A member of the RNA family "Fluoride riboswitch aptamer (crcB RNA motif)" from Heliomicrobium modesticaldum, 62 nucleotides long. The source organism's lineage runs through Bacteria, Bacillota, Eubacteriales, Heliomicrobium and Heliomicrobium modesticaldum. The base pairs follow the family's consensus structure, which is taken from published work.
RNA sequence: AAGGGAAUACGCGAUGGAGUUCGCGGUAAAGCCGUUUUGCGGAUGAUGACUCCUACUCGAUU
Numbered sequence: 001a002a003g004g005g006a007a008u009a010c011g012c013g014a015u016g017g018a019g020u021u022c023g024c025g026g027u028a029a030a031g032c033c034g035u036u037u038u039g040c041g042g043a044u045g046a047u048g049a050c051u052c053c054u055a056c057u058c059g060a061u062u
Base pairs, nucleotide, nucleotide: 010025011024012023013022016053017052018051019050020049021048032042033041034040